[Rfam]
RNA: Bacterial small subunit ribosomal RNA, nucleotides 1 to 528
RNA sequence: AAACUUGAGAGUUUGAUCCUGGCUCAGAAUGAAUGCUGGCGGCAAGCUUAACACAUGCAAGUUGAGCGUUAGUUAGCUCUCCCUUGGGAGAGCAUGCAAAAGCAGCGGACGGGUGAGUAAAGUAUGGGAAUAUACCUAUUAGUAUGGAAUAGCCUUGAGAAAUUAAGGGUAAUGCCAUAUAACCUCUAAGGAGGAAAGAUUUUAUUGCUAAUAGAUUAGCCUAUAUCUGAUUAGAUAGUUGGUAGGGUAAAGGCCUACCAAGUCAAAGAUCAGUAGCUGGUCUGAGAGGAUGAUCAGCCACACUGGGAUUGAGAUACGGCCCAGACUCCUAUGGGAGGCAGCAGUGGGGAAUAUUGGACAAUGGGGGCAACCCUGAUCCAGCUAUGCCGCGUGAAUGAUGAAGGUUCUAGGAUUGUAAAAUUCUUUCAGUGGGGAAGAUAAUGACGGUACCCACAGAAGAAACCCUGGCUAACUCCGUGCCAGCAGCCGCGGUAAUACGGGGAGGGUUAGCAUUAUUCGGAAUUAUUG
Numbered sequence: 001a002a003a004c005u006u007g008a009g010a011g012u013u014u015g016a017u018c019c020u021g022g023c024u025c026a027g028a029a030u031g032a033a034u035g036c037u038g039g040c041g042g043c044a045a046g047c048u049u050a051a052c053a054c055a056u057g058c059a060a061g062u063u064g065a066g067c068g069u070u071a072g073u074u075a076g077c078u079c080u081c082c083c084u085u086g087g088g089a090g091a092g093c094a095u096g097c098a099a100a101a102g103c104a105g106c107g108g109a110c111g112g113g114u115g116a117g118u119a120a121a122g123u124a125u126g127g128g129a130a131u132a133u134a135c136c137u138a139u140u141a142g143u144a145u146g147g148a149a150u151a152g153c154c155u156u157g158a159g160a161a162a163u164u165a166a167g168g169g170u171a172a173u174g175c176c177a178u179a180u181a182a183c184c185u186c187u188a189a190g191g192a193g194g195a196a197a198g199a200u201u202u203u204a205u206u207g208c209u210a211a212u213a214g215a216u217u218a219g220c221c222u223a224u225a226u227c228u229g230a231u232u233a234g235a236u237a238g239u240u241g242g243u244a245g246g247g248u249a250a251a252g253g254c255c256u257a258c259c260a261a262g263u264c265a266a267a268g269a270u271c272a273g274u275a276g277c278u279g280g281u282c283u284g285a286g287a288g289g290a291u292g293a294u295c296a297g298c299c300a301c302a303c304u305g306g307g308a309u310u311g312a313g314a315u316a317c318g319g320c321c322c323a324g325a326c327u328c329c330u331a332u333g334g335g336a337g338g339c340a341g342c343a344g345u346g347g348g349g350a351a352u353a354u355u356g357g358a359c360a361a362u363g364g365g366g367g368c369a370a371c372c373c374u375g376a377u378c379c380a381g382c383u384a385u386g387c388c389g390c391g392u393g394a395a396u397g398a399u400g401a402a403g404g405u406u407c408u409a410g411g412a413u414u415g416u417a418a419a420a421u422u423c424u425u426u427c428a429g430u431g432g433g434g435a436a437g438a439u440a441a442u443g444a445c446g447g448u449a450c451c452c453a454c455a456g457a458a459g460a461a462a463c464c465c466u467g468g469c470u471a472a473c474u475c476c477g478u479g480c481c482a483g484c485a486g487c488c489g490c491g492g493u494a495a496u497a498c499g500g501g502g503a504g505g506g507u508u509a510g511c512a513u514u515a516u517u518c519g520g521a522a523u524u525a526u527u528g
Stems, first nucleotide, its partner, number of pairs: 009025005027518004032514006039390006045383002047348001052346003056343003061106003066103002069099002076093007113301003122226007131218002136214007144178004153168006184193003198206003227273003234264003239261008276298004280291004303324005326337004354380001356379003362375005393423004403414004427459001429454005437445001462507005473502005483490002